[Rfam]
RNA sequence: GCUGGAAUAGCGCGGGUAAUAGUUGAUGAAGAUAUGUCCCCGUGCCUGGUCGAUGGCGUGGAACAGCGGGUUCCAGUCGAACAUCGCCAGCAUGUAGCCCGGCAGGGUGUUGGCCAGGAACAUCUUGCCGGAGGCGAUCAUGUUCGCCCGCUG
Numbered sequence: 001g002c003u004g005g006a007a008u009a010g011c012g013c014g015g016g017u018a019a020u021a022g023u024u025g026a027u028g029a030a031g032a033u034a035u036g037u038c039c040c041c042g043u044g045c046c047u048g049g050u051c052g053a054u055g056g057c058g059u060g061g062a063a064c065a066g067c068g069g070g071u072u073c074c075a076g077u078c079g080a081a082c083a084u085c086g087c088c089a090g091c092a093u094g095u096a097g098c099c100c101g102g103c104a105g106g107g108u109g110u111u112g113g114c115c116a117g118g119a120a121c122a123u124c125u126u127g128c129c130g131g132a133g134g135c136g137a138u139c140a141u142g143u144u145c146g147c148c149c150g151c152u153g
Base pairs, nucleotide, nucleotide: 003034004033008030013025014024015023038056039055041052042051064153065152066151067150068149070082071081072080073079086147087146089144090143091142092141093140094139098134099133100131102129103127104126105125106124107123108122110119111118
Dot-bracket structure: ..((...(....(((.......)))....)..))...((.((........))..)).......(((((.((((.....))))...((.((((((...(((.(((((((.((......))..)))))).).).))....)))))).)).)))))

A member of the RNA family "Ruegeria cis2 sRNA" from Oceanicola sp. 22II-s10i, 153 nucleotides long. The base pairs follow the family's consensus structure, which was predicted with RNAfold. The organism belongs to Oceanicola, within Bacteria. It scores 106 bits against the family's covariance model. Rfam links the family to the GO term regulation of gene expression.